[Rfam]
RNA sequence: GGUCAUGAGUACCAGCAACAAGCCCCGGCUCGCUGGUCGGCAACCCUCCUACCGCGGUGGGGUGCUCCGGGUGAGGACCUGGUCCGUCGUGAGGUGCGACGGGCAAGCGCGGGCC
Number, nucleotide and partner (000 for none) at each position: 001g079002g078003u077004c076005a000006u000007g000008a000009g038010u000011a037012c036013c035014a034015g033016c032017a000018a000019c000020a000021a030022g029023c000024c000025c000026c000027g000028g000029c022030u021031c000032g016033c015034u014035g013036g012037u011038c009039g066040g065041c064042a000043a000044c062045c061046c060047u000048c057049c056050u000051a000052c000053c000054g000055c000056g049057g048058u000059g000060g046061g045062g044063u000064g041065c040066u039067c000068c000069g000070g000071g000072u000073g000074a000075g000076g004077a003078c002079c001080u000081g000082g104083u103084c102085c101086g100087u099088c098089g097090u096091g095092a000093g000094g000095u091096g090097c089098g088099a087100c086101g085102g084103g083104c082105a000106a000107g000108c000109g000110c000111g000112g000113g000114c000115c000

SAM (S-adenosyl methionine) riboswitch aptamer: a 115-nucleotide RNA from Crossiella cryophila. SAM-IV is a mRNA element that regulates gene expression via direct sensing of S-adenosylmethionine (SAM or AdoMet).